[Rfam]
Nucleotides: 060
Base pairs, nucleotide, nucleotide: 033057034056035055036053037052038051039050040049042047
Number, partner (000 for none) and nucleotide at each position: 001000u002000a003000g004000u005000g006000u007000u008000a009000c010000a011000g012000c013000u014000c015000u016000u017000u018000a019000g020000a021000a022000u023000u024000u025000g026000c027000c028000u029000a030000g031000c032000a033057g034056g035055u036053u037052u038051c039050c040049g041000a042047u043000u044000c045000u046000c047042a048000c049040u050039g051038g052037a053036a054000g055035a056034c057033c058000u059000c060000c